[Rfam]
RNA sequence: AACGAUAACGGCAAACCUGUCGAAAGACUGGGACGCAAAGCUAAAGGGCCUUGUAUACAUGGCAGCCAGCUACCGAAA
Numbered sequence: 001a002a003c004g005a006u007a008a009c010g011g012c013a014a015a016c017c018u019g020u021c022g023a024a025a026g027a028c029u030g031g032g033a034c035g036c037a038a039a040g041c042u043a044a045a046g047g048g049c050c051u052u053g054u055a056u057a058c059a060u061g062g063c064a065g066c067c068a069g070c071u072a073c074c075g076a077a078a
Base pairs, nucleotide, nucleotide: 003075004074011036012035016031017030019028020027021026034065039071040070041069042068046067047066048063049062050061
About this RNA
c-di-GMP-I-GGC riboswitch aptamer: a 78-nucleotide RNA from Paenibacillus nuruki. Rfam links the family to the GO term cyclic-di-GMP binding. Taxonomically the source falls in Paenibacillus (Bacteria, Bacillota, Caryophanales, Paenibacillaceae).